Shown here is a 109-nucleotide RNA from Meyerozyma guilliermondii, a member of the family "U5 spliceosomal RNA".
RNA sequence: CGCCAGAAGAUCAAUAUCUAUCGUACAUGGUUCUUGCCUUUUACCAGAACCAUCCGGGUAUUGUCUUUAUAUGGUGCUCGCUAUUUUUUGGAACCUUCUCAUGAUGCUU
Numbered sequence: 001c002g003c004c005a006g007a008a009g010a011u012c013a014a015u016a017u018c019u020a021u022c023g024u025a026c027a028u029g030g031u032u033c034u035u036g037c038c039u040u041u042u043a044c045c046a047g048a049a050c051c052a053u054c055c056g057g058g059u060a061u062u063g064u065c066u067u068u069a070u071a072u073g074g075u076g077c078u079c080g081c082u083a084u085u086u087u088u089u090g091g092a093a094c095c096u097u098c099u100c101a102u103g104a105u106g107c108u109u
Base pairs, nucleotide, nucleotide: 003074004073005072007067008066009065012063013062014061015060016059017058018057027053028052029051030050031049032048033047034046092109093108095106097104098103

The source organism's lineage runs through Eukaryota, Opisthokonta, Dikarya, Pichiomycetes and Meyerozyma guilliermondii. Rfam's curators put it in the seed alignment. About the family: U5 RNA is a component of both types of known spliceosome.